[Rfam]
A member of the RNA family "MIR8675 microRNA precursor family" from Gossypium klotzschianum, 95 nucleotides long.
RNA sequence: UAUGGAACUCUAAGAUUGUGCCACAUCAUCACUUAAAAAUUUAAAAAAUUAUAUAAAUUUUUAGGUGAUGACUUGGUACAAUAUUAGAGUGCCAC
Numbered sequence: 001u002a003u004g005g006a007a008c009u010c011u012a013a014g015a016u017u018g019u020g021c022c023a024c025a026u027c028a029u030c031a032c033u034u035a036a037a038a039a040u041u042u043a044a045a046a047a048a049u050u051a052u053a054u055a056a057a058u059u060u061u062u063a064g065g066u067g068a069u070g071a072c073u074u075g076g077u078a079c080a081a082u083a084u085u086a087g088a089g090u091g092c093c094a095c
Stems, first nucleotide, its partner, number of pairs: 003094003007090003012085002015082009026071016
Rfam links the family to the GO terms RISC complex and miRNA-mediated post-transcriptional gene silencing.